[Rfam]
RNA sequence: UCGUGCUAGGUGGGGAGUUAGCGGUGCCCUGAACCUGCAAUCCGCUAUAGCAGGGCUGAAUGCUUAUACUGAGGCUUAUGUUUGUGGGGCUUGACCCUAGCAAGUAGUGUUGACAGUUGGGUCCGACGCAACAAGAAUUUGUGAACCCCGUCAGGUCCGGAAGGAAGCAGCGGUAAGCGAACCCUCUUGUGUGCCGUUGGGUAGCCUGACUCGAGCUAACUACUAGGGUAACACUUGGAAGCAUAUUGUCGAAUAUAAGGCACGG
Numbered sequence: 001u002c003g004u005g006c007u008a009g010g011u012g013g014g015g016a017g018u019u020a021g022c023g024g025u026g027c028c029c030u031g032a033a034c035c036u037g038c039a040a041u042c043c044g045c046u047a048u049a050g051c052a053g054g055g056c057u058g059a060a061u062g063c064u065u066a067u068a069c070u071g072a073g074g075c076u077u078a079u080g081u082u083u084g085u086g087g088g089g090c091u092u093g094a095c096c097c098u099a100g101c102a103a104g105u106a107g108u109g110u111u112g113a114c115a116g117u118u119g120g121g122u123c124c125g126a127c128g129c130a131a132c133a134a135g136a137a138u139u140u141g142u143g144a145a146c147c148c149c150g151u152c153a154g155g156u157c158c159g160g161a162a163g164g165a166a167g168c169a170g171c172g173g174u175a176a177g178c179g180a181a182c183c184c185u186c187u188u189g190u191g192u193g194c195c196g197u198u199g200g201g202u203a204g205c206c207u208g209a210c211u212c213g214a215g216c217u218a219a220c221u222a223c224u225a226g227g228g229u230a231a232c233a234c235u236u237g238g239a240a241g242c243a244u245a246u247u248g249u250c251g252a253a254u255a256u257a258a259g260g261c262a263c264g265g
Stems, first nucleotide, its partner, number of pairs: 001265007009057003012030004017025003034054005064258005070252001073250003079243005085237004092230002096227005104220002106217003115211008123200006129191002132189005138181005148173004156165003
Bacterial large signal recognition particle RNA: a 265-nucleotide sequence from Clostridium sp. 'deep sea'. Rfam links the family to the GO terms signal recognition particle, plasma membrane targeting and SRP-dependent cotranslational protein targeting to membrane, signal sequence recognition. The base pairs follow the family's consensus structure, which is taken from published work. About the family: The signal recognition particle (SRP) is a universally conserved ribonucleoprotein involved in the co-translational targeting of proteins to membranes. Lineage of the source: Bacteria > Bacillati > Eubacteriales > Clostridiaceae > Clostridium.